The family of this 196-nucleotide RNA from Chrysochloris asiatica is "Small nucleolar RNA ZL1". The source organism's lineage runs through Eukaryota, Opisthokonta, Metazoa, Mammalia and Chrysochloris. Gene Ontology terms of the family: RNA processing and nucleolus. Rfam classes the family as a C/D-box small nucleolar RNA. Host gene TRRAP. Predicted target U2@U47.
RNA sequence: AUUGAAGCAAGGUGAUGAACAUGACUGGCUGGAGCCCCACAGAAGCACAUGUGUGUAUGUGCGUGUGAGUCCGUGUGCCUGGCUGUGCGUGAACAUGUGUGUCUGGUAGUGCCAAUGUGUGUGUCUGGUUGUAGGGAACUAGUUAUGUGCCUUCUAUUGGACGAUGACAGUCAAACUGAUAAGAUCUGAUUGCUUC
Numbered sequence: 001a002u003u004g005a006a007g008c009a010a011g012g013u014g015a016u017g018a019a020c021a022u023g024a025c026u027g028g029c030u031g032g033a034g035c036c037c038c039a040c041a042g043a044a045g046c047a048c049a050u051g052u053g054u055g056u057a058u059g060u061g062c063g064u065g066u067g068a069g070u071c072c073g074u075g076u077g078c079c080u081g082g083c084u085g086u087g088c089g090u091g092a093a094c095a096u097g098u099g100u101g102u103c104u105g106g107u108a109g110u111g112c113c114a115a116u117g118u119g120u121g122u123g124u125c126u127g128g129u130u131g132u133a134g135g136g137a138a139c140u141a142g143u144u145a146u147g148u149g150c151c152u153u154c155u156a157u158u159g160g161a162c163g164a165u166g167a168c169a170g171u172c173a174a175a176c177u178g179a180u181a182a183g184a185u186c187u188g189a190u191u192g193c194u195u196c
Base pairs, nucleotide, nucleotide: 004196005195006194007193008192009191010190014186015185016184026173027172028171029170030169031168037106038105039104041102043100045098046097047096050093052091053090054089055088056087061083065078066077067076069074109122110121111120112119125142126141127140128139129138130137144166145165146164149162151160152159